A member of the RNA family "SAM riboswitch aptamer (S box leader)" from Actinomyces bowdenii, 90 nucleotides long. Its family is annotated with regulation of gene expression in the Gene Ontology. Taxonomically the source falls in Actinomyces (Bacteria, Bacillati, Actinomycetota, Actinomycetaceae).
RNA sequence: CGACCAUCCAGAGCAGCCGAGAGACCUGGCUCGACGACGCUGCAGCAACCCCCUUCGCGGUGAGGGUGCUUCCGCCAGGACCGAUGGAGG
Numbered sequence: 001c002g003a004c005c006a007u008c009c010a011g012a013g014c015a016g017c018c019g020a021g022a023g024a025c026c027u028g029g030c031u032c033g034a035c036g037a038c039g040c041u042g043c044a045g046c047a048a049c050c051c052c053c054u055u056c057g058c059g060g061u062g063a064g065g066g067u068g069c070u071u072c073c074g075c076c077a078g079g080a081c082c083g084a085u086g087g088a089g090g
Stems, first nucleotide, its partner, number of pairs: 001090001004087005013043005021032003026078004044070004049066002051062001053060002074082001